This 84-nucleotide sequence from Chlorocebus sabaeus belongs to the Rfam family "mir-548 microRNA precursor family". The family's consensus secondary structure was predicted with WAR. Rfam links the family to the GO terms RISC complex and miRNA-mediated post-transcriptional gene silencing. It scores 93 bits against the family's covariance model. A reference for the family is Jima et al. (2010), "Deep sequencing of the small RNA transcriptome of normal and malignant human B cells identifies hundreds of novel microRNAs", Blood. Taxonomically the source falls in Chlorocebus (Eukaryota, Opisthokonta, Eutheria, Euarchontoglires).
RNA sequence: UAUUAGGUCACUGCAAAGGUAAUUGCAGUUUUUGUCAUUGAAAGUAAUGGCAAAAACUGCAAUUACCUUUGCAGUGAUCUAAUG
Numbered sequence: 001u002a003u004u005a006g007g008u009c010a011c012u013g014c015a016a017a018g019g020u021a022a023u024u025g026c027a028g029u030u031u032u033u034g035u036c037a038u039u040g041a042a043a044g045u046a047a048u049g050g051c052a053a054a055a056a057c058u059g060c061a062a063u064u065a066c067c068u069u070u071g072c073a074g075u076g077a078u079c080u081a082a083u084g
Stems, first nucleotide, its partner, number of pairs: 001084040
Dot-bracket structure: ((((((((((((((((((((((((((((((((((((((((....))))))))))))))))))))))))))))))))))))))))